[Rfam]
RNA sequence: CAAGUUUAAAACCAUAGCAGAAGUGCUCACUUUGUGGACCUGUCAGAUUCCAACAAAUCUGCAAAUUCUGCU
Numbered sequence: 001c002a003a004g005u006u007u008a009a010a011a012c013c014a015u016a017g018c019a020g021a022a023g024u025g026c027u028c029a030c031u032u033u034g035u036g037g038a039c040c041u042g043u044c045a046g047a048u049u050c051c052a053a054c055a056a057a058u059c060u061g062c063a064a065a066u067u068c069u070g071c072u
Stems, first nucleotide, its partner, number of pairs: 012037002016072007023035003044061006